[Rfam]
RNA sequence: UAAAUCCUGCUGUGUGCGUAGAUUGAGUUCAUAUUGACCGAACAUAUUGAAAAAGGGAACCUAUCUCUUUUUGUGGAAUGAGAUCCAAUUUAUAUAUUGGAAACAGGAAGCAGAAAGGCGGUGCCCACCUGCUUGAGAGCGGGUUCAAAUAACUCAAUCUUGCGGCAUGGUGGGUUUUAU
Numbered sequence: 001u002a003a004a005u006c007c008u009g010c011u012g013u014g015u016g017c018g019u020a021g022a023u024u025g026a027g028u029u030c031a032u033a034u035u036g037a038c039c040g041a042a043c044a045u046a047u048u049g050a051a052a053a054a055g056g057g058a059a060c061c062u063a064u065c066u067c068u069u070u071u072u073g074u075g076g077a078a079u080g081a082g083a084u085c086c087a088a089u090u091u092a093u094a095u096a097u098u099g100g101a102a103a104c105a106g107g108a109a110g111c112a113g114a115a116a117g118g119c120g121g122u123g124c125c126c127a128c129c130u131g132c133u134u135g136a137g138a139g140c141g142g143g144u145u146c147a148a149a150u151a152a153c154u155c156a157a158u159c160u161u162g163c164g165g166c167a168u169g170g171u172g173g174g175u176u177u178u179a180u
Stems, first nucleotide, its partner, number of pairs: 002178003006174010017164003032151003035147003038143002055126003059122003064117001068116007080104001085100004

A member of the RNA family "6S / SsrS RNA" from Clostridium tyrobutyricum, 180 nucleotides long. Pairs were carried over by alignment from the consensus structure, which is taken from published work. A search with the family's covariance model found it, with a score of 82 bits. Rfam 15.1 lists 5,006 matches to the family in 4,638 species. Rfam's curators write: E. coli 6S RNA was the first non coding RNA to be sequenced, but its function was unknown until recently. It consists of 184 nucleotides that fold into an extended hairpin structure with a large single-stranded internal bulge. The 6S RNA specifically associates with RNA polymerase holoenzyme containing the sigma70 specificity factor. This interaction represses expression from a sigma70-dependent promoter during stationary phase. 6S RNA homologs have recently been identified in most bacterial genomes. Many Gram-positive species have two copies of 6S RNA. In Bacillus subtilis, both copies appear to interact with RNA polymerase holoenzyme containing the housekeeping sigma factor and be expressed during different stages of growth. In many proteobacteria, 6S RNA may be processed from a transcript encoding homologs of the E. coli YgfA protein which is a putative 5-formyltetrahydrofolate cycloligase activity.